A member of the RNA family "msiK RNA" from Streptomyces sp. TverLS-915, 59 nucleotides long.
A search with the family's covariance model found it, with a score of 52 bits.
It is annotated as a cis-regulatory element.
Rfam 15.1 lists 1,374 matches to the family in 1,364 species.
The family's consensus secondary structure is taken from published work.
RNA sequence: ACUUCUCCUCUCUUUACUCGGAUCGUCCGGCACGUUCCUGCCGGUGAAGGGGGCCCGCA
Number, nucleotide and partner (000 for none) at each position: 001a000002c000003u000004u000005c000006u000007c000008c000009u000010c051011u050012c049013u048014u047015u046016a045017c000018u000019c000020g000021g000022a000023u000024c000025g000026u000027c044028c043029g042030g041031c040032a039033c000034g000035u000036u000037c000038c000039u032040g031041c030042c029043g028044g027045u016046g015047a014048a013049g012050g011051g010052g000053g000054c000055c000056c000057g000058c000059a000